[Rfam]
RNA: small nucleolar RNA snoR127
RNA sequence: CUGGAAUGAUGCAUUUUAGCCAAAUCAGACAUUGAUGUGCUCCUGAAGGCAAUUCUUUUUAAGCUUGUACCAAUUGUUAUUGCGGAAGUAUUCUUGUGACAUCUUCUGUGAUGCAGUUGUUCAAGGUUUAAUUGAGACACCUUUGGUAGAAGUGCAUCUCUCUGACGAUAACACAGAGAUGGGUUGCUAGCUGACCAGA
Numbered sequence: 001c002u003g004g005a006a007u008g009a010u011g012c013a014u015u016u017u018a019g020c021c022a023a024a025u026c027a028g029a030c031a032u033u034g035a036u037g038u039g040c041u042c043c044u045g046a047a048g049g050c051a052a053u054u055c056u057u058u059u060u061a062a063g064c065u066u067g068u069a070c071c072a073a074u075u076g077u078u079a080u081u082g083c084g085g086a087a088g089u090a091u092u093c094u095u096g097u098g099a100c101a102u103c104u105u106c107u108g109u110g111a112u113g114c115a116g117u118u119g120u121u122c123a124a125g126g127u128u129u130a131a132u133u134g135a136g137a138c139a140c141c142u143u144u145g146g147u148a149g150a151a152g153u154g155c156a157u158c159u160c161u162c163u164g165a166c167g168a169u170a171a172c173a174c175a176g177a178g179a180u181g182g183g184u185u186g187c188u189a190g191c192u193g194a195c196c197a198g199a
Stems, first nucleotide, its partner, number of pairs: 001198004